[Rfam]
RNA sequence: ACAACAAUGAUGAUAUUUAGAGACCUGAUCUGAUUUGCGAAAAUGACCGCAAUUCUAAUGAACAUCUAAGGGACUGAGUUGAU
Numbered sequence: 001a002c003a004a005c006a007a008u009g010a011u012g013a014u015a016u017u018u019a020g021a022g023a024c025c026u027g028a029u030c031u032g033a034u035u036u037g038c039g040a041a042a043a044u045g046a047c048c049g050c051a052a053u054u055c056u057a058a059u060g061a062a063c064a065u066c067u068a069a070g071g072g073a074c075u076g077a078g079u080u081g082a083u
Stems, first nucleotide, its partner, number of pairs: 002081004